[Rfam]
Nucleotides: 072
Stems, first nucleotide, its partner, number of pairs: 012068002015065017
Number, partner (000 for none) and nucleotide at each position: 001000u002000g003000c004000a005000g006000a007000a008000g009000u010000u011000u012068u013067c014000c015065u016064c017063g018062g019061c020060a021059g022058u023057u024056a025055a026054c027053u028052g029051c030050c031049g032000c033000c034000g035000g036000u037000u038000u039000a040000c041000u042000a043000a044000a045000a046000c047000u048000u049031c050030g051029g052028c053027a054026g055025u056024u057023a058022a059021c060020u061019g062018c063017c064016g065015a066000a067013g068012g069000g070000c071000a072000u